[Rfam]
RNA sequence: UGAGGGUCGGGCAACCGCCUCUGACCGCAUGGGAGAAGUCAGCAGACGGCAUAGUAAUCGGUGGAAACGAGCUUCACAAAAGUGGAGAGGCCUCACCCCGAUGAAGGCC
Numbered sequence: 001u002g003a004g005g006g007u008c009g010g011g012c013a014a015c016c017g018c019c020u021c022u023g024a025c026c027g028c029a030u031g032g033g034a035g036a037a038g039u040c041a042g043c044a045g046a047c048g049g050c051a052u053a054g055u056a057a058u059c060g061g062u063g064g065a066a067a068c069g070a071g072c073u074u075c076a077c078a079a080a081a082g083u084g085g086a087g088a089g090g091c092c093u094c095a096c097c098c099c100g101a102u103g104a105a106g107g108c109c
Stems, first nucleotide, its partner, number of pairs: 001024001003022004008017003038047003048109003057102005
RNA: Group II catalytic intron D1-D4-1